Rfam assigns this 118-nucleotide RNA sequence from Paenibacillus sp. UNCCL117 to the family "STnc490 Hfq binding RNA". The family's RNA type in Rfam is small RNA.
RNA sequence: AACCCCCAGUUCGACUGGGGGUUCAGGAAAGCUUAUAGCUAUAAGUAAAAAUCCCUUGACCUCUAUGAUAAAAUGAUAGCCGGUCUGCCAACCGCAUCAUCAAAUCAAGGAGGACAAG
Numbered sequence: 001a002a003c004c005c006c007c008a009g010u011u012c013g014a015c016u017g018g019g020g021g022u023u024c025a026g027g028a029a030a031g032c033u034u035a036u037a038g039c040u041a042u043a044a045g046u047a048a049a050a051a052u053c054c055c056u057u058g059a060c061c062u063c064u065a066u067g068a069u070a071a072a073a074u075g076a077u078a079g080c081c082g083g084u085c086u087g088c089c090a091a092c093c094g095c096a097u098c099a100u101c102a103a104a105u106c107a108a109g110g111a112g113g114a115c116a117a118g
Stems, first nucleotide, its partner, number of pairs: 001023010028042001030040004055118004060113004066107004072100001074099004081094004